[Rfam]
Shown here is a 145-nucleotide RNA sequence from Sorex araneus, a member of the family "Small nucleolar RNA SNORA12". Lineage of the source: Eukaryota > Chordata > Gnathostomata > Dipnotetrapodomorpha > Sorex. The literature on the family includes a 2005 paper in Nucleic Acids Res by Gu et al., "A novel experimental approach for systematic identification of box H/ACA snoRNAs from eukaryotes". U108 belongs to the H/ACA family of snoRNAs. The sequence is predicted to guide the pseudouridylation of the U372 residue in the 28S rRNA subunit.
RNA sequence: AGUUGUGGUGGUUUUCAUCUGGCGCAUUUGUUAAGUUUUCAAAUGGGCCUGACUCUGCCACAUACAUUAUAGAGGAGCUGGCAAGGGCUGGAGGACAGAGAGCUCUCUCGAGCCGUUCCCGUGUCCCCGCUUUGCUCUGACAGAC
Numbered sequence: 001a002g003u004u005g006u007g008g009u010g011g012u013u014u015u016c017a018u019c020u021g022g023c024g025c026a027u028u029u030g031u032u033a034a035g036u037u038u039u040c041a042a043a044u045g046g047g048c049c050u051g052a053c054u055c056u057g058c059c060a061c062a063u064a065c066a067u068u069a070u071a072g073a074g075g076a077g078c079u080g081g082c083a084a085g086g087g088c089u090g091g092a093g094g095a096c097a098g099a100g101a102g103c104u105c106u107c108u109c110g111a112g113c114c115g116u117u118c119c120c121g122u123g124u125c126c127c128c129g130c131u132u133u134g135c136u137c138u139g140a141c142a143g144a145c
Stems, first nucleotide, its partner, number of pairs: 005061007021049003025045006074138005080089003107129001110126001